[Rfam]
RNA sequence: AAGGUUGAUGAGGUAGUUUAUAAAGCUGCGAGAGUGGUUUAAGUUCGCAGAUUUUAAACUAUCUCGACUGCCUU
Numbered sequence: 001a002a003g004g005u006u007g008a009u010g011a012g013g014u015a016g017u018u019u020a021u022a023a024a025g026c027u028g029c030g031a032g033a034g035u036g037g038u039u040u041a042a043g044u045u046c047g048c049a050g051a052u053u054u055u056a057a058a059c060u061a062u063c064u065c066g067a068c069u070g071c072c073u074u
Base pairs, nucleotide, nucleotide: 003072004071005070010065011064012063013062014061015060016059017058022054023053024052027049028048029047
Source information
mir-84 microRNA precursor family: a 74-nucleotide RNA from Thelazia callipaeda. Pairs were carried over by alignment from the consensus structure, which was predicted with RNAalifold. The literature on the family includes a 2009 paper in Genome Res by de Wit et al., "Repertoire and evolution of miRNA genes in four divergent nematode species".